antisense RNA of dnaA mRNA: an 81-nucleotide RNA sequence from Pseudoalteromonas galatheae. For this family Rfam cites "Identification and characterization of a cis-encoded antisense RNA associated with the replication process of Salmonella enterica serovar Typhi" (Dadzie et al., PLoS One, 2013). Gene Ontology term of the family: regulation of mRNA stability. It scores 57 bits against the family's covariance model.

[Rfam]
Nucleotides: 081
Base pairs, nucleotide, nucleotide: 004043005042006041011036012035013034017031018030021028051078052077053076054075056074057073061072062071
Number, partner (000 for none) and nucleotide at each position: 001000u002000u003000u004043u005042g006041c007000a008000u009000c010000c011036g012035g013034u014000u015000u016000u017031u018030g019000u020000u021028c022000a023000a024000u025000g026000a027000u028021g029000c030018c031017a032000u033000u034013a035012c036011c037000u038000a039000c040000g041006g042005c043004g044000u045000g046000u047000a048000a049000c050000a051078g052077g053076u054075g055000c056074g057073u058000c059000u060000u061072a062071c063000c064000c065000a066000a067000a068000c069000c070000u071062g072061u073057a074056c075054c076053a077052c078051c079000a080000u081000a